Overview
The family of this 222-nucleotide RNA sequence from Colwellia sp. MT41 is "Lysine riboswitch aptamer". The family's consensus secondary structure is taken from published work. A search with the family's covariance model found it, with a score of 83 bits.
RNA sequence: CACACCAGAAGAGGUGCGAAACUGAGGUAGAAAACGUGAGGAACCACACUUCCUAUGACCGUUUUCGAGGGACGUUAUCGCCGAGAGUAUUUGAUGGUGGGCUUAAAUACUCGGUCACUAAGGUUGAAUCCUUAGGGCUGUCACCUGACGUAUUUGUUAAAUAUAACCUAGUUUAUUAGGCAUUAUUAGCAUUAAGUAAAAGGGUGGAGAGCUUCUGGCUGA
Numbered sequence: 001c002a003c004a005c006c007a008g009a010a011g012a013g014g015u016g017c018g019a020a021a022c023u024g025a026g027g028u029a030g031a032a033a034a035c036g037u038g039a040g041g042a043a044c045c046a047c048a049c050u051u052c053c054u055a056u057g058a059c060c061g062u063u064u065u066c067g068a069g070g071g072a073c074g075u076u077a078u079c080g081c082c083g084a085g086a087g088u089a090u091u092u093g094a095u096g097g098u099g100g101g102c103u104u105a106a107a108u109a110c111u112c113g114g115u116c117a118c119u120a121a122g123g124u125u126g127a128a129u130c131c132u133u134a135g136g137g138c139u140g141u142c143a144c145c146u147g148a149c150g151u152a153u154u155u156g157u158u159a160a161a162u163a164u165a166a167c168c169u170a171g172u173u174u175a176u177u178a179g180g181c182a183u184u185a186u187u188a189g190c191a192u193u194a195a196g197u198a199a200a201a202g203g204g205u206g207g208a209g210a211g212c213u214u215c216u217g218g219c220u221g222a
Base pairs, nucleotide, nucleotide: 006217007216008215009214010213011212016081017080018079019078021076023074024073030066031065032064033063034062035061036060085112086111087110088109089108090107091106092105093104094103113139114138115137116136118135119134120133121132122131123130141207142206143205144204145203146202